[Rfam]
RNA sequence: GAAGAUGUUUGGCAAACUUAUCGAAAGAUAAGGACGCAAAGCCGUGGGUCUAAGGGAGUUUUCCUAUGAUUGCCAGGUUGCCAUU
Numbered sequence: 001g002a003a004g005a006u007g008u009u010u011g012g013c014a015a016a017c018u019u020a021u022c023g024a025a026a027g028a029u030a031a032g033g034a035c036g037c038a039a040a041g042c043c044g045u046g047g048g049u050c051u052a053a054g055g056g057a058g059u060u061u062u063c064c065u066a067u068g069a070u071u072g073c074c075a076g077g078u079u080g081c082c083a084u085u
Stems, first nucleotide, its partner, number of pairs: 012037002017032006040079004045075003048070003055064003